[Rfam]
RNA sequence: GGCCACCUUCGGGGGGCUAUAACGGAGGGCAGGGCAACCUGCCCGCAAAGCAACGGAAGACAGAAA
Numbered sequence: 001g002g003c004c005a006c007c008u009u010c011g012g013g014g015g016g017c018u019a020u021a022a023c024g025g026a027g028g029g030c031a032g033g034g035c036a037a038c039c040u041g042c043c044c045g046c047a048a049a050g051c052a053a054c055g056g057a058a059g060a061c062a063g064a065a066a
Stems, first nucleotide, its partner, number of pairs: 001018004006014003027044007
Shown here is a 66-nucleotide RNA from Pararhodobacter marinus, a member of the family "L2-Alphaproteobacteria ribosomal protein leader". The family's consensus secondary structure is taken from published work. The match comes from Rfam's covariance-model search (71 bits). On this family, see Eckert and Weinberg, BMC Microbiol 2020: "Discovery of 20 novel ribosomal leader candidates in bacteria and archaea". NCBI's taxonomy places the organism under Bacteria, Pseudomonadati, Pseudomonadota, Paracoccaceae, Pararhodobacter. It is annotated as a cis-regulatory leader.